[Rfam]
RNA sequence: CCACGAUAGGCGGGGGGCUGGCGGUCCCCUGUACCCGAAAUCCGCCAUACGCGGGGCCGAACUCCCACCCGAGGCGGCCUAUGUCGGGAAACAGUUCGUGCCGAAGGCGAUGAAGGCUGGGUCCUGUGCAACGGUGCGCCGUGAACCUGGUCAGGUCCGGAAGGAAGCAGCCAUAAGCGGUUGCACCGUGUGCCGCAGGAGUGCCUGGCUGGAGCUGGAGGCACGAAUAUGCCCCGGUUUAGGUUUGUCGACGGUGGGUUCGUGG
Numbered sequence: 001c002c003a004c005g006a007u008a009g010g011c012g013g014g015g016g017g018c019u020g021g022c023g024g025u026c027c028c029c030u031g032u033a034c035c036c037g038a039a040a041u042c043c044g045c046c047a048u049a050c051g052c053g054g055g056g057c058c059g060a061a062c063u064c065c066c067a068c069c070c071g072a073g074g075c076g077g078c079c080u081a082u083g084u085c086g087g088g089a090a091a092c093a094g095u096u097c098g099u100g101c102c103g104a105a106g107g108c109g110a111u112g113a114a115g116g117c118u119g120g121g122u123c124c125u126g127u128g129c130a131a132c133g134g135u136g137c138g139c140c141g142u143g144a145a146c147c148u149g150g151u152c153a154g155g156u157c158c159g160g161a162a163g164g165a166a167g168c169a170g171c172c173a174u175a176a177g178c179g180g181u182u183g184c185a186c187c188g189u190g191u192g193c194c195g196c197a198g199g200a201g202u203g204c205c206u207g208g209c210u211g212g213a214g215c216u217g218g219a220g221g222c223a224c225g226a227a228u229a230u231g232c233c234c235c236g237g238u239u240u241a242g243g244u245u246u247g248u249c250g251a252c253g254g255u256g257g258g259u260u261c262g263u264g265g
Stems, first nucleotide, its partner, number of pairs: 001265006009058003012030008034055004064258006073249005079242003083238006092231002096226006106216003115210008123199006129190002132188005138181005148173004156165003
A member of the RNA family "Bacterial large signal recognition particle RNA" from Pseudothermotoga thermarum, 265 nucleotides long. A search with the family's covariance model found it, with a score of 182 bits. From the family's description: The signal recognition particle (SRP) is a universally conserved ribonucleoprotein involved in the co-translational targeting of proteins to membranes. A reference for the family is Rosenblad et al. (2009), "Kinship in the SRP RNA family", RNA Biol. Pairs were carried over by alignment from the consensus structure, which is taken from published work.